The record is a 143-nucleotide RNA from Clostridium sp. CAG:1013, which matches "FMN riboswitch aptamer (RFN element)" in Rfam. The organism belongs to Clostridium, within Bacteria. Rfam's curators write: The RFN element is a highly conserved domain that is found frequently in the 5'-untranslated regions of prokaryotic mRNAs that encode for flavin mononucleotide (FMN) biosynthesis and transport proteins. This element is a metabolite-dependent riboswitch that directly binds FMN in the absence of proteins. In Bacillus subtilis, the riboswitch most likely controls gene expression by causing premature transcription termination within the 5' untranslated region of the ribDEAHT operon and precluding access to the ribosome-binding site of ypaA mRNA.The FMN riboswitch structure, reported in present an FMN-bound six-stem junction, adopts a butterfly-like scaffold, stapled together by opposingly directed but nearly identically folded peripheral domains.
[Rfam]
RNA sequence: AAUGAUCUUCGGGGCAAGGUGCAAUUCCUGACCGGCAGUAAAGUCUGCGAACGGAGAGGCUUCUCUCCGCCGAACCGGUGAAAUUCCGGUACCGACGGUGAACCGCGUUUUACGCGGCAAAGUCCGGAUGAUAGAAGAUUGGA
Numbered sequence: 001a002a003u004g005a006u007c008u009u010c011g012g013g014g015c016a017a018g019g020u021g022c023a024a025u026u027c028c029u030g031a032c033c034g035g036c037a038g039u040a041a042a043g044u045c046u047g048c049g050a051a052c053g054g055a056g057a058g059g060c061u062u063c064u065c066u067c068c069g070c071c072g073a074a075c076c077g078g079u080g081a082a083a084u085u086c087c088g089g090u091a092c093c094g095a096c097g098g099u100g101a102a103c104c105g106c107g108u109u110u111u112a113c114g115c116g117g118c119a120a121a122g123u124c125c126g127g128a129u130g131a132u133a134g135a136a137g138a139u140u141g142g143a
Stems, first nucleotide, its partner, number of pairs: 003141008017029003033094002035048004043092002052069002074090005096126003